[Rfam]
RNA sequence: CUAUGUCAUGAAUUUGACAUGGCGAAAGGAG
Dot-bracket structure: ((((((((......)))))))).........
RNA: L31-Firmicutes ribosomal protein leader